The record is an 81-nucleotide RNA from Monodelphis domestica, which matches "Small nucleolar RNA SNORD79" in Rfam. It is annotated as a C/D-box small nucleolar RNA. Its family is annotated with nucleolus and RNA processing in the Gene Ontology. The source organism's lineage runs through Eukaryota, Metazoa, Vertebrata, Dipnotetrapodomorpha and Monodelphis. The family is grouped with related families in Rfam's "SNORD74 clan". It is one of the family's seed sequences. The family has 28 seed sequences and 784 matches in Rfam 15.1. From the family's description: snoRNA U79 or Z22 is found in intron 7 of the gas5 gene in humans and is also present in mice.
RNA sequence: UACUGUUGGUGAUGAUUUCUAUAUUAAAACAAUGGGAAUCUCUCUGAAAGAGAAUGAGGAUUUUCUUUUUCUGAAACAGUA
Numbered sequence: 001u002a003c004u005g006u007u008g009g010u011g012a013u014g015a016u017u018u019c020u021a022u023a024u025u026a027a028a029a030c031a032a033u034g035g036g037a038a039u040c041u042c043u044c045u046g047a048a049a050g051a052g053a054a055u056g057a058g059g060a061u062u063u064u065c066u067u068u069u070u071c072u073g074a075a076a077c078a079g080u081a
Stems, first nucleotide, its partner, number of pairs: 001081007